[Rfam]
RNA sequence: GAUGGUAGACUGUUAAGUGAAAUAGACUCGACGGACCCGGAGGGCAGUACUCCGGCGCCUCCACCAACAGCCGCGGAUAGCAAGCCACUGUUGUUGAUGGGGGCGAAACAGGAUCGACGUGUGUAGUAAAGACUUGAUUGCCAUCCGGCGUGAUUGAGCCGUUAAACCGAUCAUUUUUAUAAGUGCCAACGAUAACGAGGUACUCGCUGUUGCUGCGUAA
Numbered sequence: 001g002a003u004g005g006u007a008g009a010c011u012g013u014u015a016a017g018u019g020a021a022a023u024a025g026a027c028u029c030g031a032c033g034g035a036c037c038c039g040g041a042g043g044g045c046a047g048u049a050c051u052c053c054g055g056c057g058c059c060u061c062c063a064c065c066a067a068c069a070g071c072c073g074c075g076g077a078u079a080g081c082a083a084g085c086c087a088c089u090g091u092u093g094u095u096g097a098u099g100g101g102g103g104c105g106a107a108a109c110a111g112g113a114u115c116g117a118c119g120u121g122u123g124u125a126g127u128a129a130a131g132a133c134u135u136g137a138u139u140g141c142c143a144u145c146c147g148g149c150g151u152g153a154u155u156g157a158g159c160c161g162u163u164a165a166a167c168c169g170a171u172c173a174u175u176u177u178u179a180u181a182a183g184u185g186c187c188a189a190c191g192a193u194a195a196c197g198a199g200g201u202a203c204u205c206g207c208u209g210u211u212g213c214u215g216c217g218u219a220a
Base pairs, nucleotide, nucleotide: 001145002144003143004142005141015135016134017133018132027123029121031120032119033118037055038054039053040052042050056105057104058103059102060101061100062099146161147160148159149158
A member of the RNA family "permuted transfer-messenger RNA" from Zymomonas mobilis, 220 nucleotides long. Gene Ontology term of the family: RNA catabolic process. The match comes from Rfam's covariance-model search (123 bits). By type it is a non-coding RNA gene.